Description: The record is a 59-nucleotide RNA sequence from Cornus chinensis, which matches "Plastid-psbA-4 3UTR RNA" in Rfam. Lineage of the source: Eukaryota > eudicotyledons > Pentapetalae > Cornaceae > Cornus. Rfam's curators write: Plastid psbA-4 is a non-coding RNA (ncRNA) present in plastids. It was identified in inverted repeat sequences in the 3 prime untranslate region (3UTR) of photosystem II quinone-binding protein (psbA). The literature on the family includes a 2023 paper in Plant Commun by Richter et al., "Retrograde signaling in plants: A critical review focusing on the GUN pathway and beyond". The family's consensus secondary structure was predicted with LocARNA.
RNA sequence: AAAAUAAAGGAUCAAAACCAAUUUCUUGUUCUAUCAAGAAAUUGGUUUUGAUCCUUUAU
Numbered sequence: 001a002a003a004a005u006a007a008a009g010g011a012u013c014a015a016a017a018c019c020a021a022u023u024u025c026u027u028g029u030u031c032u033a034u035c036a037a038g039a040a041a042u043u044g045g046u047u048u049u050g051a052u053c054c055u056u057u058a059u
Stems, first nucleotide, its partner, number of pairs: 006057011020043002023040006